Rfam assigns this 359-nucleotide RNA from Neoaquamicrobium microcysteis to the family "Alphaproteobacteria transfer-messenger RNA".
Taxonomically the source falls in Neoaquamicrobium (Bacteria, Pseudomonadota, Alphaproteobacteria, Hyphomicrobiales).
It is annotated as a non-coding RNA gene.
Pairs were carried over by alignment from the consensus structure, which is taken from published work.
RNA sequence: GGCCUUCCCUUUCGCGCGCCGACUUCCUAUAUUCGGGCGGUCAGCUUGCCUGACUAUGGAAAUAAACGGCCGUUGCAAUAAGCCAUUCGGACCCGGGGGCGGUACCCGGCGCCUCCACCAGGAACCGCAGCAUCGCGCUGCGGCUGCUGAUGGGGGCGAAACAGGAUCGACGAGGGUGUAAAGAGCGGACUUUUUCCCGGCAUUGUACCACCGUUAUCGGGCUAUUCUUAUAGUUGCCAACGACAACUAUGCUGAGGCACGUCUCGCUGCUUAAUGCGGCGCGAUAGUCUCGAAUUAAGCCCUGUGGGUUAGCACCUUCAGGCGGGGUUCGGAGGUACCUGGCAACAGAAACCUCCACU
Numbered sequence: 001g002g003c004c005u006u007c008c009c010u011u012u013c014g015c016g017c018g019c020c021g022a023c024u025u026c027c028u029a030u031a032u033u034c035g036g037g038c039g040g041u042c043a044g045c046u047u048g049c050c051u052g053a054c055u056a057u058g059g060a061a062a063u064a065a066a067c068g069g070c071c072g073u074u075g076c077a078a079u080a081a082g083c084c085a086u087u088c089g090g091a092c093c094c095g096g097g098g099g100c101g102g103u104a105c106c107c108g109g110c111g112c113c114u115c116c117a118c119c120a121g122g123a124a125c126c127g128c129a130g131c132a133u134c135g136c137g138c139u140g141c142g143g144c145u146g147c148u149g150a151u152g153g154g155g156g157c158g159a160a161a162c163a164g165g166a167u168c169g170a171c172g173a174g175g176g177u178g179u180a181a182a183g184a185g186c187g188g189a190c191u192u193u194u195u196c197c198c199g200g201c202a203u204u205g206u207a208c209c210a211c212c213g214u215u216a217u218c219g220g221g222c223u224a225u226u227c228u229u230a231u232a233g234u235u236g237c238c239a240a241c242g243a244c245a246a247c248u249a250u251g252c253u254g255a256g257g258c259a260c261g262u263c264u265c266g267c268u269g270c271u272u273a274a275u276g277c278g279g280c281g282c283g284a285u286a287g288u289c290u291c292g293a294a295u296u297a298a299g300c301c302c303u304g305u306g307g308g309u310u311a312g313c314a315c316c317u318u319c320a321g322g323c324g325g326g327g328u329u330c331g332g333a334g335g336u337a338c339c340u341g342g343c344a345a346c347a348g349a350a351a352c353c354u355c356c357a358c359u
Base pairs, nucleotide, nucleotide: 040054041053042052043051044050058197059196060195061194062193068190070188071187072186073185074184083176084175087173088172089171093109094108095107096106097105110158111157112156113155114154115153116152198213199212200211203224205222208220209219325340326339327338328337331356332355333354334353335352336351